This 122-nucleotide RNA sequence from Vreelandella subglaciescola belongs to the Rfam family "Group II catalytic intron D1-D4-2". The base pairs follow the family's consensus structure. For this family Rfam cites "The ins and outs of group II introns" (Bonen and Vogel, Trends Genet, 2001). Rfam describes the family as follows. Group II introns are found in rRNA, tRNA and mRNA of organelles in fungi, plants and protists, and also in mRNA in bacteria. Taxonomically the source falls in Vreelandella (Bacteria, Gammaproteobacteria, Oceanospirillales, Halomonadaceae). Its family is annotated with Group II intron splicing in the Gene Ontology. Rfam 15.1 lists 1,231 matches to the family in 625 species. The match comes from Rfam's covariance-model search (107 bits).
[Rfam]
RNA sequence: GGUGGUAGGGCCCACCGAAGUCGGCUGUCGGAAGCAGGCUUCAAACCAGCCCAAGCUGCAUGCAUUAAGAGUGUUUGUGGUGAGCGUUGGGUUAAAAGGCUGCACAGUUGAUGCAGUCAGGU
Numbered sequence: 001g002g003u004g005g006u007a008g009g010g011c012c013c014a015c016c017g018a019a020g021u022c023g024g025c026u027g028u029c030g031g032a033a034g035c036a037g038g039c040u041u042c043a044a045a046c047c048a049g050c051c052c053a054a055g056c057u058g059c060a061u062g063c064a065u066u067a068a069g070a071g072u073g074u075u076u077g078u079g080g081u082g083a084g085c086g087u088u089g090g091g092u093u094a095a096a097a098g099g100c101u102g103c104a105c106a107g108u109u110g111a112u113g114c115a116g117u118c119a120g121g122u
Stems, first nucleotide, its partner, number of pairs: 001016005017042006024035003047121001049092006055081002058078003062074004098118006